[Rfam]
RNA sequence: UGGGAUCCCGUAUCCGCCGUGCCUCUGUGUCCGCUAUAGACCCUGUGUCCGCUUCCCCAGCAGCGGACACAGGGUCUAUAGCGGACACAGAGGCACGGCGGAUACGGGAUCCCAAGCA
Numbered sequence: 001u002g003g004g005a006u007c008c009c010g011u012a013u014c015c016g017c018c019g020u021g022c023c024u025c026u027g028u029g030u031c032c033g034c035u036a037u038a039g040a041c042c043c044u045g046u047g048u049c050c051g052c053u054u055c056c057c058c059a060g061c062a063g064c065g066g067a068c069a070c071a072g073g074g075u076c077u078a079u080a081g082c083g084g085a086c087a088c089a090g091a092g093g094c095a096c097g098g099c100g101g102a103u104a105c106g107g108g109a110u111c112c113c114a115a116g117c118a
Base pairs, nucleotide, nucleotide: 010105011104012103013102014101015100016099018097019096021094022093023092024091025090026089027088028087029086030085031084032083033082034081037078038077039076040075041074042073043072044071045070046069047068048067049066050065051064052063053062

Shown here is a 118-nucleotide sequence from Branchiostoma lanceolatum, a member of the family "mraW RNA". By type it is a cis-regulatory element. The source organism's lineage runs through Eukaryota, Bilateria, Deuterostomia, Branchiostomatidae and Branchiostoma.